[Rfam]
RNA sequence: AAUGCACUUAACUGCAAGUCUCUCUGGAUAAGAGUGUCUGCUAAAUUACUCAAG
Numbered sequence: 001a002a003u004g005c006a007c008u009u010a011a012c013u014g015c016a017a018g019u020c021u022c023u024c025u026g027g028a029u030a031a032g033a034g035u036g037u038c039u040g041c042u043a044a045a046u047u048a049c050u051c052a053a054g
Stems, first nucleotide, its partner, number of pairs: 013043001014041003020036001022034004